[Rfam]
RNA sequence: AUAAAUAACAACAACCAGUAUCAUUGGCUGUCCCAAUUUCGCCAACAUUGGGACGGUCUCUCUAAGCUGGAAGAUUGGCUUGAACGACUUAAGUUCAGUCGGGCGAACCCAUUCCGUUUCACCUGGCAUUACUGUUGUUCACACACAC
Numbered sequence: 001a002u003a004a005a006u007a008a009c010a011a012c013a014a015c016c017a018g019u020a021u022c023a024u025u026g027g028c029u030g031u032c033c034c035a036a037u038u039u040c041g042c043c044a045a046c047a048u049u050g051g052g053a054c055g056g057u058c059u060c061u062c063u064a065a066g067c068u069g070g071a072a073g074a075u076u077g078g079c080u081u082g083a084a085c086g087a088c089u090u091a092a093g094u095u096c097a098g099u100c101g102g103g104c105g106a107a108c109c110c111a112u113u114c115c116g117u118u119u120c121a122c123c124u125g126g127c128a129u130u131a132c133u134g135u136u137g138u139u140c141a142c143a144c145a146c147a148c
Stems, first nucleotide, its partner, number of pairs: 015070005027057010081141005087135002098127006105120003

The record is a 148-nucleotide RNA from Zygosaccharomyces rouxii, which matches "Small nucleolar RNA snR161" in Rfam. Taxonomically the source falls in Zygosaccharomyces (Eukaryota, Opisthokonta, Ascomycota, Saccharomycetes). Pairs were carried over by alignment from the consensus structure, which was predicted with WAR. It scores 125 bits against the family's covariance model. On this family, see Schattner et al., Nucleic Acids Res 2004: "Genome-wide searching for pseudouridylation guide snoRNAs: analysis of the Saccharomyces cerevisiae genome".